The record is a 98-nucleotide RNA sequence from Novimethylophilus kurashikiensis, which matches "Bacterial small signal recognition particle RNA" in Rfam. By type it is a non-coding RNA gene.

RNA sequence: GGCGGGCCUCCCCGCAUUGCAAGAUAGCCAACCUGGUCAGGUCCGGAAGGAAGCAGCCACAGUUAUUCAAGCAAGUGCCGGGGCAAAGGCUCGCCACU
Numbered sequence: 001g002g003c004g005g006g007c008c009u010c011c012c013c014g015c016a017u018u019g020c021a022a023g024a025u026a027g028c029c030a031a032c033c034u035g036g037u038c039a040g041g042u043c044c045g046g047a048a049g050g051a052a053g054c055a056g057c058c059a060c061a062g063u064u065a066u067u068c069a070a071g072c073a074a075g076u077g078c079c080g081g082g083g084c085a086a087a088g089g090c091u092c093g094c095c096a097c098u
Stems, first nucleotide, its partner, number of pairs: 004092005010083005015075001017074004023067006034059004042051003